[Rfam]
RNA sequence: UUGACAGAAGAGAGUGAGCACACAGAGGUAAUUGUAUAGAGGCUAUACCCUUGCUUUUGCGUGCUCAUUUCUCUUCCCGUCAA
Numbered sequence: 001u002u003g004a005c006a007g008a009a010g011a012g013a014g015u016g017a018g019c020a021c022a023c024a025g026a027g028g029u030a031a032u033u034g035u036a037u038a039g040a041g042g043c044u045a046u047a048c049c050c051u052u053g054c055u056u057u058u059g060c061g062u063g064c065u066c067a068u069u070u071c072u073c074u075u076c077c078c079g080u081c082a083a
Stems, first nucleotide, its partner, number of pairs: 001083005007077001009075001010073003013069009023059003
Rfam assigns this 83-nucleotide RNA sequence from Corymbia citriodora to the family "mir-156 microRNA precursor family".
From the family's description: This family represents the plant microRNA (miRNA) precursor mir-156.
The base pairs follow the family's consensus structure, which was predicted with PFOLD.
The match comes from Rfam's covariance-model search (66 bits).
On this family, see Reinhart et al., Genes Dev 2002: "MicroRNAs in plants".
Lineage of the source: Eukaryota > Mesangiospermae > Myrtales > Myrtaceae > Corymbia citriodora.
Gene Ontology terms of the family: RISC complex and miRNA-mediated post-transcriptional gene silencing.